[Rfam]
RNA sequence: GGUAUUCCUUAUCUGUCUCUAAUGGUUUAUUUGGAGUCUAUCUUCCUGUGUUUUAACCAGAGUCAUAAAACCAGAGUUAAAACACGCGCCCUGGUGAAAGCACCGGAAGAUAGGCUCAUCAGUUUAGUUGCCGCUUUAGUGCUCAAA
Numbered sequence: 001g002g003u004a005u006u007c008c009u010u011a012u013c014u015g016u017c018u019c020u021a022a023u024g025g026u027u028u029a030u031u032u033g034g035a036g037u038c039u040a041u042c043u044u045c046c047u048g049u050g051u052u053u054u055a056a057c058c059a060g061a062g063u064c065a066u067a068a069a070a071c072c073a074g075a076g077u078u079a080a081a082a083c084a085c086g087c088g089c090c091c092u093g094g095u096g097a098a099a100g101c102a103c104c105g106g107a108a109g110a111u112a113g114g115c116u117c118a119u120c121a122g123u124u125u126a127g128u129u130g131c132c133g134c135u136u137u138a139g140u141g142c143u144c145a146a147a
Stems, first nucleotide, its partner, number of pairs: 001132004022123001023121003034117009045106002048103002051100004
The family of this 147-nucleotide RNA from Yersinia ruckeri is "tp2". Rfam classes the family as a small RNA. The match comes from Rfam's covariance-model search (88 bits). Lineage of the source: Bacteria > Pseudomonadati > Enterobacterales > Yersiniaceae > Yersinia.